This 83-nucleotide RNA from Auanema sp. JU1783 belongs to the Rfam family "mir-46/mir-47/mir-281 microRNA precursor family".
RNA sequence: AUUAGAAAUAGCUCAAGAGAGCAGUCUGUUGACAGUUUGUUGAAGAUUACUGUCAUGGAGUCGCUCUCUUCAGAUAUUAUUCU
Numbered sequence: 001a002u003u004a005g006a007a008a009u010a011g012c013u014c015a016a017g018a019g020a021g022c023a024g025u026c027u028g029u030u031g032a033c034a035g036u037u038u039g040u041u042g043a044a045g046a047u048u049a050c051u052g053u054c055a056u057g058g059a060g061u062c063g064c065u066c067u068c069u070u071c072a073g074a075u076a077u078u079a080u081u082c083u
Stems, first nucleotide, its partner, number of pairs: 015070004020065003025059004031054003035050002
Dot-bracket structure: ..............((((.(((..((((..(((.((............)).))).))))...))).)))).............

Rfam 15.1 lists 307 matches to the family in 262 species.
For this family Rfam cites "An abundant class of tiny RNAs with probable regulatory roles in Caenorhabditis elegans" (Lau et al., Science, 2001).
NCBI's taxonomy places the organism under Eukaryota, Protostomia, Ecdysozoa, Nematoda, Auanema.
Its family is annotated with RISC complex and miRNA-mediated post-transcriptional gene silencing in the Gene Ontology.
The match comes from Rfam's covariance-model search (69 bits).